[Rfam]
RNA: small Cajal body-specific RNA 18
Nucleotides: 078
Base pairs, nucleotide, nucleotide: 003076004075005074038048039047040046041045
Number, partner (000 for none) and nucleotide at each position: 001000c002000u003076g004075c005074c006000g007000a008000u009000g010000a011000u012000g013000a014000c015000g016000c017000g018000a019000c020000a021000u022000c023000u024000g025000u026000g027000c028000g029000a030000u031000c032000u033000g034000a035000g036000u037000u038048c039047u040046g041045g042000g043000a044000a045041c046040c047039a048038g049000a050000c051000g052000a053000u054000g055000g056000a057000g058000u059000g060000u061000g062000u063000g064000a065000a066000c067000c068000g069000a070000c071000u072000g073000a074005g075004g076003c077000c078000g